Shown here is an 84-nucleotide RNA sequence from Halovulum marinum, a member of the family "tRNA". It scores 53 bits against the family's covariance model. By type it is a transfer RNA.
RNA sequence: GCCCGAGUGGUGGAAUUGGUAGACACAGGGGAUUCAAAAUCCCCCGCUGUAACAGGCUUGCCGGUUCGAGUCCGGCCUCGGGUA
Dot-bracket structure: (((((((..(((...........))).(((((.......)))))...............(((((.......)))))))))))).